RNA sequence: UAGUCUCGCUGAACAUUCAACGCUGUCGGUGAGUUUGUAACAUUGAAAAACCAUCGACCGUUGACUGUGCCCUGAGACCAC
Numbered sequence: 001u002a003g004u005c006u007c008g009c010u011g012a013a014c015a016u017u018c019a020a021c022g023c024u025g026u027c028g029g030u031g032a033g034u035u036u037g038u039a040a041c042a043u044u045g046a047a048a049a050a051c052c053a054u055c056g057a058c059c060g061u062u063g064a065c066u067g068u069g070c071c072c073u074g075a076g077a078c079c080a081c
Base pairs, nucleotide, nucleotide: 003079004077005076006075007074008073014067015066017064018063019062020061021060022059025058026057027056028055029054030053031052033051034050035049036048

A member of the RNA family "mir-181 microRNA precursor family" from Danionella cerebrum, 81 nucleotides long. A search with the family's covariance model found it, with a score of 73 bits. The family's consensus secondary structure was predicted with PFOLD. A reference for the family is Ambros (2001), "microRNAs: tiny regulators with great potential", Cell. NCBI's taxonomy places the organism under Eukaryota, Gnathostomata, Otophysi, Danioninae, Danionella.